[Rfam]
RNA sequence: UGGCUGUGAUGAUAGAACUAAGGCUUGUUUCUCAAAACAUUCGCAGAUGCCGCCUAAGAGCUUUCGCCCUGCCAGGCUUGAGAGCUUAUGCUGCUAAUUCCUUCCUUGGAUGUCUGAGCCA
Numbered sequence: 001u002g003g004c005u006g007u008g009a010u011g012a013u014a015g016a017a018c019u020a021a022g023g024c025u026u027g028u029u030u031c032u033c034a035a036a037a038c039a040u041u042c043g044c045a046g047a048u049g050c051c052g053c054c055u056a057a058g059a060g061c062u063u064u065c066g067c068c069c070u071g072c073c074a075g076g077c078u079u080g081a082g083a084g085c086u087u088a089u090g091c092u093g094c095u096a097a098u099u100c101c102u103u104c105c106u107u108g109g110a111u112g113u114c115u116g117a118g119c120c121a
Stems, first nucleotide, its partner, number of pairs: 001121004060085006
RNA: Small nucleolar RNA SNORD14
Organism: Hordeum vulgare